[Rfam]
This 77-nucleotide RNA sequence from Glycine max belongs to the Rfam family "Small nucleolar RNA Z159/U59".
NCBI's taxonomy places the organism under Eukaryota, Tracheophyta, Mesangiospermae, Papilionoideae, Glycine subgen. Soja.

RNA sequence: GCUUCUGAGGAUGAUCAGAAAAUUAACUUUCCGAGUUGUCCUUGAGGAACAUACAUGGAGACCUGAACUGAAGAGGC
Numbered sequence: 001g002c003u004u005c006u007g008a009g010g011a012u013g014a015u016c017a018g019a020a021a022a023u024u025a026a027c028u029u030u031c032c033g034a035g036u037u038g039u040c041c042u043u044g045a046g047g048a049a050c051a052u053a054c055a056u057g058g059a060g061a062c063c064u065g066a067a068c069u070g071a072a073g074a075g076g077c
Stems, first nucleotide, its partner, number of pairs: 003075004
About this RNA:
Rfam links the family to the GO terms RNA processing and nucleolus. A reference for the family is Chen et al. (2003), "The high diversity of snoRNAs in plants: identification and comparative study of 120 snoRNA genes from Oryza sativa", Nucleic Acids Res. A search with the family's covariance model found it, with a score of 42 bits. It is annotated as a C/D-box small nucleolar RNA.